This 135-nucleotide RNA sequence from Robiginitalea biformata belongs to the Rfam family "SAM riboswitch aptamer (S box leader)".
The SAM riboswitch is found upstream of a number of genes which code for proteins involved in methionine or cysteine biosynthesis in Gram-positive bacteria.

RNA sequence: UCGUUAUCAAGAAAGGUGGAGGGACUAGACCCAGUGAAGCCUUGGCAACCCUUCGCACAAUCGAAGAAGGUGCUACAUUCUAACCCGGACCGGGAUCGGGGCCAGCUGGCUGCCGCGGUGCGGGGCAGAUAACAA
Numbered sequence: 001u002c003g004u005u006a007u008c009a010a011g012a013a014a015g016g017u018g019g020a021g022g023g024a025c026u027a028g029a030c031c032c033a034g035u036g037a038a039g040c041c042u043u044g045g046c047a048a049c050c051c052u053u054c055g056c057a058c059a060a061u062c063g064a065a066g067a068a069g070g071u072g073c074u075a076c077a078u079u080c081u082a083a084c085c086c087g088g089a090c091c092g093g094g095a096u097c098g099g100g101g102c103c104a105g106c107u108g109g110c111u112g113c114c115g116c117g118g119u120g121c122g123g124g125g126c127a128g129a130u131a132a133c134a135a
Stems, first nucleotide, its partner, number of pairs: 001135001003133006013043005021032003026083001028081001044074004049070002051066004079127001084124004